[Rfam]
RNA: Small nucleolar RNA SNORA30/SNORA37 family
RNA sequence: AUAGCACUUUCACAGGUCCUCCUCUAGGAAGUGGGGUUAGGAUUUGGUAGCUGGUGCUGAAAGAAAAUCCUUGAUUGCAUCCUUGCCCUGGUAUUGUGCCAGUGGCAGCUGUCACUCAACGGGACAGAG
Dot-bracket structure: ..((((((....(((.((((.((((.......))))..)))).)))......)))))).........(((((((.((.((..(((((((((.......)))).)))))..)))).)))).)))......